[Rfam]
c-di-AMP riboswitch aptamer (ydaO/yuaA leader): a 155-nucleotide sequence from Blastococcus sp. TF02-09. About the family: This family represents a conserved RNA structure found upstream of the ydaO and yuaA genes in Bacillus subtilis and related genes in other bacteria. The match comes from Rfam's covariance-model search (59 bits). Lineage of the source: Bacteria > Bacillati > Actinomycetota > Geodermatophilaceae > Blastococcus. Its family is annotated with cyclic-di-AMP binding and regulation of gene expression in the Gene Ontology.
Nucleotides: 155
Stems, first nucleotide, its partner, number of pairs: 011140004018042006043135006053065001066120003074095004098114004
Number, partner (000 for none) and nucleotide at each position: 001000g002000g003000c004000c005000g006000g007000g008000c009000a010000c011140c012139g013138c014137c015000g016000a017000a018042c019041c020040g021039g022038c023037g024000a025000c026000c027000g028000g029000a030000u031000g032000u033000c034000c035000g036000g037023c038022g039021c040020c041019g042018g043135a044134c045133c046132g047131g048130g049000g050000a051000c052000c053065c054000a055000c056000c057000g058000a059000a060000g061000u062000c063000c064000c065053g066120g067119g068118g069000u070000g071000a072000a073000g074095c075094g076093g077092a078000a079000c080000c081000g082000g083000c084000g085000c086000g087000a088000c089000c090000g091000g092077u093076c094075c095074g096000c097000c098114g099113g100112g101111c102000g103000a104000u105000c106000u107000c108000c109000c110000c111101g112100c113099c114098c115000g116000a117000a118068c119067c120066c121000g122000u123000c124000a125000g126000c127000u128000a129000a130048c131047c132046c133045g134044g135043u136000a137014g138013g139012c140011g141000g142000u143000u144000c145000a146000c147000g148000g149000a150000g151000a152000a153000c154000a155000g